Description:
The family of this 96-nucleotide sequence from Nicotiana sylvestris is "MIR6152 microRNA precursor family". NCBI's taxonomy places the organism under Eukaryota, Euphyllophyta, Pentapetalae, Nicotianoideae, Nicotiana. A search with the family's covariance model found it, with a score of 86 bits.
[Rfam]
RNA sequence: UGUAUUCUUAUUGUAUUCAACUAUAUUCACGGCGUGAUAUAGGGGAUUACUCUGUUUUUAAAACGGAAAGUGAAUCAAUUAAUAUAAUAGACUCCU
Numbered sequence: 001u002g003u004a005u006u007c008u009u010a011u012u013g014u015a016u017u018c019a020a021c022u023a024u025a026u027u028c029a030c031g032g033c034g035u036g037a038u039a040u041a042g043g044g045g046a047u048u049a050c051u052c053u054g055u056u057u058u059u060a061a062a063a064c065g066g067a068a069a070g071u072g073a074a075u076c077a078a079u080u081a082a083u084a085u086a087a088u089a090g091a092c093u094c095c096u
Stems, first nucleotide, its partner, number of pairs: 002095001004093001008090007016082002019080002022077001025075006033065003036058002039055004